[Rfam]
Rfam assigns this 97-nucleotide sequence from Thiothrix caldifontis to the family "Bacterial small signal recognition particle RNA".
RNA sequence: UAUUGGUUCUCCCGCGACGAUAAGUAGUGAACCUUGUCAGGCCCGGAAGGGAGCAGCAACAGCUACUGAUUCGGGUGCCGGGAUGUGGCUGGUGCAG
Numbered sequence: 001u002a003u004u005g006g007u008u009c010u011c012c013c014g015c016g017a018c019g020a021u022a023a024g025u026a027g028u029g030a031a032c033c034u035u036g037u038c039a040g041g042c043c044c045g046g047a048a049g050g051g052a053g054c055a056g057c058a059a060c061a062g063c064u065a066c067u068g069a070u071u072c073g074g075g076u077g078c079c080g081g082g083a084u085g086u087g088g089c090u091g092g093u094g095c096a097g
Base pairs, nucleotide, nucleotide: 004091005090006089007088008087010083011082012081013080014079015075018073019072020071023067024066025065026064027063028062034059035058036057037056042051043050044049
A search with the family's covariance model found it, with a score of 70 bits. Clan: SRP clan. The signal recognition particle (SRP) is a universally conserved ribonucleoprotein involved in the co-translational targeting of proteins to membranes. Rfam classes the family as a non-coding RNA gene. A reference for the family is Rosenblad et al. (2003), "SRPDB: Signal Recognition Particle Database", Nucleic Acids Res. The family's consensus secondary structure is taken from published work.